A member of the RNA family "Hepatitis C virus stem-loop SL8670" from Orthohepacivirus hominis, 92 nucleotides long. On this family, see Mauger et al., Proc Natl Acad Sci U S A 2015: "Functionally conserved architecture of hepatitis C virus RNA genomes". It is one of the family's seed sequences.

[Rfam]
RNA sequence: AGAGUGCUGGGACUCAAGAGGAUAUAGCGAGCCUGCGAGUCUUCACGGAGGCUAUGACCAGGUACUCAGCUCCCCCCGGAGACCCGCCUCAA
Numbered sequence: 001a002g003a004g005u006g007c008u009g010g011g012a013c014u015c016a017a018g019a020g021g022a023u024a025u026a027g028c029g030a031g032c033c034u035g036c037g038a039g040u041c042u043u044c045a046c047g048g049a050g051g052c053u054a055u056g057a058c059c060a061g062g063u064a065c066u067c068a069g070c071u072c073c074c075c076c077c078g079g080a081g082a083c084c085c086g087c088c089u090c091a092a
Stems, first nucleotide, its partner, number of pairs: 006087002009084002014079002018075001020073002026071003029067002031063005038053006